The family of this 303-nucleotide RNA from Papaver nudicaule is "Plant signal recognition particle RNA". It scores 227 bits against the family's covariance model. Its Rfam clan is "SRP clan". Taxonomically the source falls in Papaver (Eukaryota, Viridiplantae, Mesangiospermae, Papaveraceae). Its family is annotated with SRP-dependent cotranslational protein targeting to membrane, signal sequence recognition and signal recognition particle, endoplasmic reticulum targeting in the Gene Ontology.

[Rfam]
RNA sequence: GUCGAGCUCGGUAGUGCGAGCUUGUAACCCAAGCGGGGACAAUAAGAUGGUCGGACACCGAGUCAAAUUCACUAGGUAGGUUCUAGUACACACUGUAUCGACUCGCCCAUUCCAAGUUAGGAGUUGACUUCACGAUUCUAGCGUAAGCCUGGGUUGUGCGGUCACUAGAGCGGAGGGCACCGCGUCAGGCUGUCUUCACAGAGCAGCGAUCACCUCCCUCUCUUGACAGUGGAAGGAUAACGAGUUGAUGUGCACUGGUUCCAACUCAGCCAAGUGAGCUGACCCGGUUGGACAACCAUUUUU
Numbered sequence: 001g002u003c004g005a006g007c008u009c010g011g012u013a014g015u016g017c018g019a020g021c022u023u024g025u026a027a028c029c030c031a032a033g034c035g036g037g038g039a040c041a042a043u044a045a046g047a048u049g050g051u052c053g054g055a056c057a058c059c060g061a062g063u064c065a066a067a068u069u070c071a072c073u074a075g076g077u078a079g080g081u082u083c084u085a086g087u088a089c090a091c092a093c094u095g096u097a098u099c100g101a102c103u104c105g106c107c108c109a110u111u112c113c114a115a116g117u118u119a120g121g122a123g124u125u126g127a128c129u130u131c132a133c134g135a136u137u138c139u140a141g142c143g144u145a146a147g148c149c150u151g152g153g154u155u156g157u158g159c160g161g162u163c164a165c166u167a168g169a170g171c172g173g174a175g176g177g178c179a180c181c182g183c184g185u186c187a188g189g190c191u192g193u194c195u196u197c198a199c200a201g202a203g204c205a206g207c208g209a210u211c212a213c214c215u216c217c218c219u220c221u222c223u224u225g226a227c228a229g230u231g232g233a234a235g236g237a238u239a240a241c242g243a244g245u246u247g248a249u250g251u252g253c254a255c256u257g258g259u260u261c262c263a264a265c266u267c268a269g270c271c272a273a274g275u276g277a278g279c280u281g282a283c284c285c286g287g288u289u290g291g292a293c294a295a296c297c298a299u300u301u302u303u
Base pairs, nucleotide, nucleotide: 001040002039003038004023005022006021007020008019009018010017028037029036030035044302045301046300047299048298049297050296051295053293056290057289058287059286060285062283063282064281065280069277070276071275072274073273075271076270077269079262080261083258084257085256086255089252090251098248099247100246101245102244103243104242105241107236108235110234111233112232113231114230116227117226118225119224120223121222122221123220125164126163127162128161129160131158132157133156134155135154136153137152138151141148142147165170172217173216174215175214176213183208184207185206190201191200192199